[Rfam]
RNA sequence: CCAUCGACGCAGGGAGACGCUGGCCGGGAACGGUCAGGGCCGAAGGAGCAACCGCCCCGGUAAACUCUCAGGCAAAAGGACCUGCGCCGGUAC
Dot-bracket structure: .....(.((((((......((((..........)))).(((((..(((...((.....))....))))).))).......)))))).).....
Numbered sequence: 001c002c003a004u005c006g007a008c009g010c011a012g013g014g015a016g017a018c019g020c021u022g023g024c025c026g027g028g029a030a031c032g033g034u035c036a037g038g039g040c041c042g043a044a045g046g047a048g049c050a051a052c053c054g055c056c057c058c059g060g061u062a063a064a065c066u067c068u069c070a071g072g073c074a075a076a077a078g079g080a081c082c083u084g085c086g087c088c089g090g091u092a093c
Stems, first nucleotide, its partner, number of pairs: 006088001008086006020037004039073003042069002046067003052060002
Glycine riboswitch aptamer: a 93-nucleotide sequence from Roseicyclus mahoneyensis. About the family: This family represents the bacterial glycine riboswitch.